[Rfam]
Shown here is a 114-nucleotide RNA from Panagrolaimus superbus, a member of the family "Potassium channel RNA editing signal". By type it is a cis-regulatory element. Taxonomically the source falls in Panagrolaimus (Eukaryota, Ecdysozoa, Chromadorea, Rhabditida).
Nucleotides: 114
Stems, first nucleotide, its partner, number of pairs: 002113001005110001009106003013102003018097002021095002037077004050062002
Number, partner (000 for none) and nucleotide at each position: 001000u002113u003000a004000g005110g006000u007000u008000u009106u010105g011104g012000u013102g014101a015100u016000a017000u018097g019096g020000u021095a022094c023000c024000a025000a026000a027000a028000a029000c030000a031000u032000a033000u034000c035000c036000a037077g038076g039075a040074a041000u042000g043000u044000u045000a046000g047000u048000u049000g050062g051061u052000u053000c054000a055000u056000u057000a058000u059000g060000u061051g062050c063000a064000u065000u066000a067000a068000u069000g070000g071000g072000u073000g074040u075039u076038u077037u078000a079000a080000c081000a082000a083000u084000u085000g086000c087000c088000u089000u090000a091000c092000c093000u094022g095021u096019u097018c098000c099000a100015g101014u102013u103000a104011u105010u106009g107000u108000u109000g110005c111000a112000a113002a114000u